FMN riboswitch aptamer (RFN element): a 125-nucleotide RNA sequence from Anaerotruncus sp. CAG:528.
RNA sequence: AAAUAUUUUCAGGGCGGGGUGCAAUUCCCCACCGGCAGUAAAGUCUGCGAACCGCUUUUUGUGCAGCGGCCGAAUCGGUGAAAUUCCGAUACCGACGGUUAAAGUCCGGAUGAGAGGAAAUGUUU
Number, nucleotide and partner (000 for none) at each position: 001a000002a000003a123004u122005a121006u120007u119008u118009u117010c116011a000012g000013g000014g000015c000016g000017g029018g028019g027020u000021g000022c000023a000024a000025u000026u000027c019028c018029c017030c000031a105032c104033c094034g093035g048036c047037a046038g045039u000040a000041a000042a000043g092044u091045c038046u037047g036048c035049g000050a000051a000052c069053c068054g000055c000056u000057u000058u000059u000060u000061g000062u000063g000064c000065a000066g000067c000068g053069g052070c000071c000072g000073a000074a090075u089076c088077g087078g086079u000080g000081a000082a000083a000084u000085u000086c078087c077088g076089a075090u074091a044092c043093c034094g033095a000096c108097g107098g106099u000100u000101a000102a000103a000104g032105u031106c098107c097108g096109g000110a000111u000112g000113a000114g000115a000116g010117g009118a008119a007120a006121u005122g004123u003124u000125u000
The source organism's lineage runs through Bacteria, Bacillati, Bacillota, Eubacteriales and Anaerotruncus.